[Rfam]
RNA sequence: GUUUAGAGGAUUGUUGUCUGGUUCAAGACCAUUCUUCUUAGGCAAUUAAGGAUGCAAUAGAAUGAUCCCGGACCAGGCUUCAUUCCUCCCAAC
Numbered sequence: 001g002u003u004u005a006g007a008g009g010a011u012u013g014u015u016g017u018c019u020g021g022u023u024c025a026a027g028a029c030c031a032u033u034c035u036u037c038u039u040a041g042g043c044a045a046u047u048a049a050g051g052a053u054g055c056a057a058u059a060g061a062a063u064g065a066u067c068c069c070g071g072a073c074c075a076g077g078c079u080u081c082a083u084u085c086c087u088c089c090c091a092a093c
Stems, first nucleotide, its partner, number of pairs: 001093003006088005012082002016078006024070001
Shown here is a 93-nucleotide RNA sequence from Lathyrus oleraceus, a member of the family "mir-166 microRNA precursor family". From the family's description: This family represents the plant microRNA (miRNA) precursor mir-166. The match comes from Rfam's covariance-model search (67 bits). Its family is annotated with miRNA-mediated post-transcriptional gene silencing and RISC complex in the Gene Ontology.